nuoG RNA: a 44-nucleotide sequence from Enterobacterales bacterium CwR94. It scores 43 bits against the family's covariance model. Lineage of the source: Bacteria > Pseudomonadati > Pseudomonadota > Gammaproteobacteria > Enterobacterales.

RNA sequence: GAAUUUUGAUUAACGUGCUCGUUGCAAGACGAGCCUUACGGAAG
Numbered sequence: 001g002a003a004u005u006u007u008g009a010u011u012a013a014c015g016u017g018c019u020c021g022u023u024g025c026a027a028g029a030c031g032a033g034c035c036u037u038a039c040g041g042a043a044g
Base pairs, nucleotide, nucleotide: 017034018033019032020031021030022029023028